The record is a 130-nucleotide RNA from Pelusios castaneus, which matches "Small nucleolar RNA SNORA27" in Rfam.
ACA27 is a member of the H/ACA class of snoRNA that guide the sites of modification of uridines to pseudouridines.
Its family is annotated with nucleolus and RNA processing in the Gene Ontology.
By type it is an H/ACA-box small nucleolar RNA.
Its Rfam clan is "SNORA27 clan".
A search with the family's covariance model found it, with a score of 96 bits.

[Rfam]
RNA sequence: AACCCCUCUUUCACUUUGCUGAUUAGACAUUUCUUGUCUUCAUUGGCCAUUCAAGUGGGGUAAAAUAACUCCUUUUAAAACCCAAGCGAACGACAUUUGUUGGGCUUGGAUCCUGUCAGAGGAAACACUG
Numbered sequence: 001a002a003c004c005c006c007u008c009u010u011u012c013a014c015u016u017u018g019c020u021g022a023u024u025a026g027a028c029a030u031u032u033c034u035u036g037u038c039u040u041c042a043u044u045g046g047c048c049a050u051u052c053a054a055g056u057g058g059g060g061u062a063a064a065a066u067a068a069c070u071c072c073u074u075u076u077a078a079a080a081c082c083c084a085a086g087c088g089a090a091c092g093a094c095a096u097u098u099g100u101u102g103g104g105c106u107u108g109g110a111u112c113c114u115g116u117c118a119g120a121g122g123a124a125a126c127a128c129u130g
Stems, first nucleotide, its partner, number of pairs: 035062005043054004070123006083108001084106001087103001089101003
Dot-bracket structure: ..................................(((((...((((....))))...))))).......((((((.......((..(.(((.......))).)..).).........)))))).......